[Rfam]
RNA sequence: AACAGCACCUGGCCGAUUUCAUGUAAUAUCUGAAAAGAAAAGAUAUUACAUGUAUCGGGUAGGAGCUGUUUG
Numbered sequence: 001a002a003c004a005g006c007a008c009c010u011g012g013c014c015g016a017u018u019u020c021a022u023g024u025a026a027u028a029u030c031u032g033a034a035a036a037g038a039a040a041a042g043a044u045a046u047u048a049c050a051u052g053u054a055u056c057g058g059g060u061a062g063g064a065g066c067u068g069u070u071u072g
Stems, first nucleotide, its partner, number of pairs: 008063004013058003020052012
Dot-bracket structure: .......((((.(((....((((((((((((.........))))))))))))...))).)))).........